[Rfam]
RNA sequence: GUAGAUGUGCGGUGUGUCGGCAACUUCGCUUGAGCCGGUUAUCCGGCGAGAAGCUGCCGCCUAAAGUGCAUCUCCCUCCUGCACCGUUGGUCUAUGAUGGACCACACUCACGCGUGAACGCCCGCUUGGUU
Numbered sequence: 001g002u003a004g005a006u007g008u009g010c011g012g013u014g015u016g017u018c019g020g021c022a023a024c025u026u027c028g029c030u031u032g033a034g035c036c037g038g039u040u041a042u043c044c045g046g047c048g049a050g051a052a053g054c055u056g057c058c059g060c061c062u063a064a065a066g067u068g069c070a071u072c073u074c075c076c077u078c079c080u081g082c083a084c085c086g087u088u089g090g091u092c093u094a095u096g097a098u099g100g101a102c103c104a105c106a107c108u109c110a111c112g113c114g115u116g117a118a119c120g121c122c123c124g125c126u127u128g129g130u131u
Stems, first nucleotide, its partner, number of pairs: 003073007018059005024053004034047004088104006
Notes
The record is a 131-nucleotide RNA from Hydrogenimonas thermophila, which matches "purD RNA motif" in Rfam. Lineage of the source: Bacteria > Campylobacterota > Epsilonproteobacteria > Campylobacterales > Hydrogenimonas. A search with the family's covariance model found it, with a score of 82 bits. Gene Ontology term of the family: regulation of gene expression. The family's consensus secondary structure is taken from published work. The literature on the family includes a 2007 paper in Nucleic Acids Res by Weinberg et al., "Identification of 22 candidate structured RNAs in bacteria using the CMfinder comparative genomics pipeline". It is annotated as a cis-regulatory element.